[Rfam]
RNA: Neisseria metabolic switch regulator b (RcoF1/NgncR163)
Organism: Neisseria canis
RNA sequence: UCGUCAGGUUGCCCGAUUCGGCAGCUUGGCAGUUUCUCCUCUAUUUCUCCUUUGUAGACUUGGCGCACAUCUUUUCAGAUGUGUGCAUUUUU
Numbered sequence: 001u002c003g004u005c006a007g008g009u010u011g012c013c014c015g016a017u018u019c020g021g022c023a024g025c026u027u028g029g030c031a032g033u034u035u036c037u038c039c040u041c042u043a044u045u046u047c048u049c050c051u052u053u054g055u056a057g058a059c060u061u062g063g064c065g066c067a068c069a070u071c072u073u074u075u076c077a078g079a080u081g082u083g084u085g086c087a088u089u090u091u092u
Stems, first nucleotide, its partner, number of pairs: 003030009040058005063086010